[Rfam]
RNA sequence: AAGUUGUGGACGAAAUUAGAAUAAGAAUUGCUGGUAAUACGGCUGCGCCUUGUUUCCAUGUGCUAAAAAAUAAGGGAUAUAAAGUAACAAUGGAAACUCAUGCAUUAUCUGACGAUUGUUUAGAUUGUGUAUAUGAUUGGUAUGCGGAAAAAAAUGGACAAUUUUUUAGUGCAACGAGUCCAGAAGAGUUACUUGGAUUAGUUGCAAUGUGGGAAGUUCGUGGUAAUGACUGGAGAGCUAAUUUGAAUGAGAUAAAUACUUAUCAAAAAGCCAUAGAAGAAUCCCCGUUUUUUGAUAAAAACGGCAAUGAAAUAGAGUCUGACUAAAUUUUAUUGAUAUAGCAACGAUAAUAACCGGAAAUUUCUUCCAGAUCUUUCCGGCUUUUUAUUAUUUAACUUUCGUUCAGCACACUAAACAUCCCGUCUCGCAUCCCCUUAACUGGCUGUUUAACCUGAUAAAGUUCCCUGCGCAGUUCCUGUACUUCGUUGUUAUCCCAAGCAGGAUCAAACAUCCCUCCGAGAUCUUCACGGUAACGCCCGUGCCGAUCUCAAAUCCCGCUUUUCUCAGCCAUUUGGCGCUGAUUUUGAUCACCGGCGUGUCGCUGCGGUUGGGCAGAUAACCCACGGUACAGCGACGCUGUGUUUUGGAAAUGGU
Numbered sequence: 001a002a003g004u005u006g007u008g009g010a011c012g013a014a015a016u017u018a019g020a021a022u023a024a025g026a027a028u029u030g031c032u033g034g035u036a037a038u039a040c041g042g043c044u045g046c047g048c049c050u051u052g053u054u055u056c057c058a059u060g061u062g063c064u065a066a067a068a069a070a071u072a073a074g075g076g077a078u079a080u081a082a083a084g085u086a087a088c089a090a091u092g093g094a095a096a097c098u099c100a101u102g103c104a105u106u107a108u109c110u111g112a113c114g115a116u117u118g119u120u121u122a123g124a125u126u127g128u129g130u131a132u133a134u135g136a137u138u139g140g141u142a143u144g145c146g147g148a149a150a151a152a153a154a155u156g157g158a159c160a161a162u163u164u165u166u167u168a169g170u171g172c173a174a175c176g177a178g179u180c181c182a183g184a185a186g187a188g189u190u191a192c193u194u195g196g197a198u199u200a201g202u203u204g205c206a207a208u209g210u211g212g213g214a215a216g217u218u219c220g221u222g223g224u225a226a227u228g229a230c231u232g233g234a235g236a237g238c239u240a241a242u243u244u245g246a247a248u249g250a251g252a253u254a255a256a257u258a259c260u261u262a263u264c265a266a267a268a269a270g271c272c273a274u275a276g277a278a279g280a281a282u283c284c285c286c287g288u289u290u291u292u293u294g295a296u297a298a299a300a301a302c303g304g305c306a307a308u309g310a311a312a313u314a315g316a317g318u319c320u321g322a323c324u325a326a327a328u329u330u331u332a333u334u335g336a337u338a339u340a341g342c343a344a345c346g347a348u349a350a351u352a353a354c355c356g357g358a359a360a361u362u363u364c365u366u367c368c369a370g371a372u373c374u375u376u377c378c379g380g381c382u383u384u385u386u387a388u389u390a391u392u393u394a395a396c397u398u399u400c401g402u403u404c405a406g407c408a409c410a411c412u413a414a415a416c417a418u419c420c421c422g423u424c425u426c427g428c429a430u431c432c433c434c435u436u437a438a439c440u441g442g443c444u445g446u447u448u449a450a451c452c453u454g455a456u457a458a459a460g461u462u463c464c465c466u467g468c469g470c471a472g473u474u475c476c477u478g479u480a481c482u483u484c485g486u487u488g489u490u491a492u493c494c495c496a497a498g499c500a501g502g503a504u505c506a507a508a509c510a511u512c513c514c515u516c517c518g519a520g521a522u523c524u525u526c527a528c529g530g531u532a533a534c535g536c537c538c539g540u541g542c543c544g545a546u547c548u549c550a551a552a553u554c555c556c557g558c559u560u561u562u563c564u565c566a567g568c569c570a571u572u573u574g575g576c577g578c579u580g581a582u583u584u585u586g587a588u589c590a591c592c593g594g595c596g597u598g599u600c601g602c603u604g605c606g607g608u609u610g611g612g613c614a615g616a617u618a619a620c621c622c623a624c625g626g627u628a629c630a631g632c633g634a635c636g637c638u639g640u641g642u643u644u645u646g647g648a649a650a651u652g653g654u
Stems, first nucleotide, its partner, number of pairs: 003409002007405009016395005021388007030043004044104004052097008060088002062085003109169004114163009125149002128146007170206006177199007208275005215239005221232004242267005248262004285304008305335009316324003354380007363371003412449006419442002422439002461649004467642007474634002476631007485620006493612005499606001501513004518549006526541005565604004570599002573596002576593002579590004
RNA: Shigella small RNA 1
Organism: Shigella flexneri